[Rfam]
RNA: SAM riboswitch aptamer (S box leader)
RNA sequence: UUCUUAUCAAUAGAGGUAGAGGGACUGGCCCUAUGAAACCCAACAACCGGCAUUUAUAUGUAUCGGUGUUAAUUCCAGCAGAAUAGAUUUUACUAUUCUGGAAGAUAAGAA
Number, nucleotide and partner (000 for none) at each position: 001u111002u110003c109004u108005u107006a106007u105008c104009a000010a000011u000012a000013g041014a000015g040016g039017u038018a000019g000020a000021g031022g030023g029024a000025c078026u077027g076028g075029c023030c022031c021032u000033a000034u000035g000036a000037a000038a017039c016040c015041c013042a070043a069044c068045a067046a000047c066048c065049g000050g061051c060052a059053u000054u000055u000056a000057u000058a000059u052060g051061u050062a000063u000064c000065g048066g047067u045068g044069u043070u042071a000072a000073u000074u103075c028076c027077a026078g025079c100080a099081g098082a097083a096084u095085a094086g093087a000088u000089u000090u000091u000092a000093c086094u085095a084096u083097u082098c081099u080100g079101g000102a000103a074104g008105a007106u006107a005108a004109g003110a002111a001